[Rfam]
The family of this 72-nucleotide RNA sequence from Plutella xylostella is "mir-932 microRNA precursor family".
RNA sequence: CGAGACCUCAAUUCCGUAGUGCAUUGCAGUAAGUAAUGACACCUGCAAGCAGUGCGGAAGUGAGGUGGAGGC
Numbered sequence: 001c002g003a004g005a006c007c008u009c010a011a012u013u014c015c016g017u018a019g020u021g022c023a024u025u026g027c028a029g030u031a032a033g034u035a036a037u038g039a040c041a042c043c044u045g046c047a048a049g050c051a052g053u054g055c056g057g058a059a060g061u062g063a064g065g066u067g068g069a070g071g072c
Base pairs, nucleotide, nucleotide: 006065007064008063009062010061013058014057015056016055017054020051021050022049024048025047026046027045028044

The source organism's lineage runs through Eukaryota, Endopterygota, Lepidoptera, Plutellidae and Plutella. Its family is annotated with RISC complex and miRNA-mediated post-transcriptional gene silencing in the Gene Ontology.